Shown here is a 93-nucleotide RNA from Dichanthelium oligosanthes, a member of the family "Small nucleolar RNA snoR26".
It scores 78 bits against the family's covariance model.
The family's RNA type in Rfam is C/D-box small nucleolar RNA.
The literature on the family includes a 2001 paper in RNA by Brown et al., "Multiple snoRNA gene clusters from Arabidopsis".

RNA sequence: AGAGCAUCAGUGAUGUUACAUCCAAAUUUACUCAUCCUUGCACUUCGAGCUGCGCGGUGAAGAUAUCAUUGGGGAAUUUUAUCUGAGAUGCUC
Numbered sequence: 001a002g003a004g005c006a007u008c009a010g011u012g013a014u015g016u017u018a019c020a021u022c023c024a025a026a027u028u029u030a031c032u033c034a035u036c037c038u039u040g041c042a043c044u045u046c047g048a049g050c051u052g053c054g055c056g057g058u059g060a061a062g063a064u065a066u067c068a069u070u071g072g073g074g075a076a077u078u079u080u081a082u083c084u085g086a087g088a089u090g091c092u093c
Stems, first nucleotide, its partner, number of pairs: 002093007